[Rfam]
Group II catalytic intron D1-D4-6: a 235-nucleotide RNA sequence from Nitrosomonas halophila. Lineage of the source: Bacteria > Pseudomonadota > Betaproteobacteria > Nitrosomonadaceae > Nitrosomonas. About the family: Group II introns are found in rRNA, tRNA and mRNA of organelles in fungi, plants and protists, and also in mRNA in bacteria. It scores 69 bits against the family's covariance model.
RNA sequence: GAAGUCCCGUCCGGGGAGUUGUCCGUACGCCCCGGUAGCAUGAGGAAGCGGCGUCGCGGCAACGCGGGGUCGUGAGUUUCCACACAGCAAGAGAGCAGGCCGUAACGCAAGUGAACCCAUGAGUAGCCUCGUAAACGAAGUGGAGAAGCCGACCCUGUGGACGAAAGGGGAAGGCCGUUGGAUGGUUGCCGGAACAACGGAAGUAGCGGCCAUCGACUCCCGGGGUAGCAGGGUC
Numbered sequence: 001g002a003a004g005u006c007c008c009g010u011c012c013g014g015g016g017a018g019u020u021g022u023c024c025g026u027a028c029g030c031c032c033c034g035g036u037a038g039c040a041u042g043a044g045g046a047a048g049c050g051g052c053g054u055c056g057c058g059g060c061a062a063c064g065c066g067g068g069g070u071c072g073u074g075a076g077u078u079u080c081c082a083c084a085c086a087g088c089a090a091g092a093g094a095g096c097a098g099g100c101c102g103u104a105a106c107g108c109a110a111g112u113g114a115a116c117c118c119a120u121g122a123g124u125a126g127c128c129u130c131g132u133a134a135a136c137g138a139a140g141u142g143g144a145g146a147a148g149c150c151g152a153c154c155c156u157g158u159g160g161a162c163g164a165a166a167g168g169g170g171a172a173g174g175c176c177g178u179u180g181g182a183u184g185g186u187u188g189c190c191g192g193a194a195c196a197a198c199g200g201a202a203g204u205a206g207c208g209g210c211c212a213u214c215g216a217c218u219c220c221c222g223g224g225g226u227a228g229c230a231g232g233g234u235c
Stems, first nucleotide, its partner, number of pairs: 012034005019025001023199001036090001038088002042083001044081002046078002048073005054067005123229001124227001126226006142220004148175003153169004181214009